A member of the RNA family "Neisseria metabolic switch regulator b (RcoF1/NgncR163)" from Conchiformibius kuhniae, 91 nucleotides long. Sibling sRNA described and independently named in three publications. NgncR163 is N. gonorrhoeae while the others are N. meningitidis RNAs. Its family is annotated with tricarboxylic acid cycle, regulation of translation, ncRNA-mediated and protein binding in the Gene Ontology. NCBI's taxonomy places the organism under Bacteria, Pseudomonadota, Neisseriales, Neisseriaceae, Conchiformibius. Rfam 15.1 lists 65 matches to the family in 50 species. The match comes from Rfam's covariance-model search (73 bits). The base pairs follow the family's consensus structure, which was predicted with RNAfold.

RNA sequence: GCGUUCCGUUGCAGUGAUGCGGCGGGAUAUUUCUCCUCUAUUUCUCCUUUGUAGACUUGGCGCAUAUCCGUAAUCGGGUAUGCGCAUUUUU
Number, nucleotide and partner (000 for none) at each position: 001g000002c000003g028004u027005u026006c025007c024008g023009u022010u021011g020012c000013a000014g000015u000016g000017a000018u000019g000020c011021g010022g009023c008024g007025g006026g005027a004028u003029a000030u000031u000032u000033c000034u000035c000036c000037u055038c054039u053040a052041u051042u000043u000044c000045u000046c000047c000048u000049u000050u000051g041052u040053a039054g038055a037056c000057u000058u000059g000060g085061c084062g083063c082064a081065u080066a079067u078068c077069c076070g000071u000072a000073a000074u000075c000076g069077g068078g067079u066080a065081u064082g063083c062084g061085c060086a000087u000088u000089u000090u000091u000